[Rfam]
RNA sequence: GUGCAGUGAUGUAUUUGUCAACACAUCAUUCUGAAAAUAUGUGAUGACAUCUCAAGACUGAGCACA
Numbered sequence: 001g002u003g004c005a006g007u008g009a010u011g012u013a014u015u016u017g018u019c020a021a022c023a024c025a026u027c028a029u030u031c032u033g034a035a036a037a038u039a040u041g042u043g044a045u046g047a048c049a050u051c052u053c054a055a056g057a058c059u060g061a062g063c064a065c066a
Base pairs, nucleotide, nucleotide: 001065002064003063004062

Notes
This 66-nucleotide RNA from Microtus ochrogaster belongs to the Rfam family "Small nucleolar RNA SNORD63". Rfam classes the family as a C/D-box small nucleolar RNA. Lineage of the source: Eukaryota > Eumetazoa > Craniata > Myomorpha > Microtus. About the family: snoRNA U63 is found in both humans and mice. It scores 73 bits against the family's covariance model.